RNA sequence: GUAAUACCCAGAGGAGUGCCAACUGAGAACACGAAUACAUUUUCAGUUGCUUGAAGCUUCAUUUGUGUUCUCAGGUCACCCCUUUGGGUUAACU
Numbered sequence: 001g002u003a004a005u006a007c008c009c010a011g012a013g014g015a016g017u018g019c020c021a022a023c024u025g026a027g028a029a030c031a032c033g034a035a036u037a038c039a040u041u042u043u044c045a046g047u048u049g050c051u052u053g054a055a056g057c058u059u060c061a062u063u064u065g066u067g068u069u070c071u072c073a074g075g076u077c078a079c080c081c082c083u084u085u086g087g088g089u090u091a092a093c094u
Stems, first nucleotide, its partner, number of pairs: 007088002011084004016079003025072010
RNA: MIR398 microRNA precursor family
Organism: Asparagus officinalis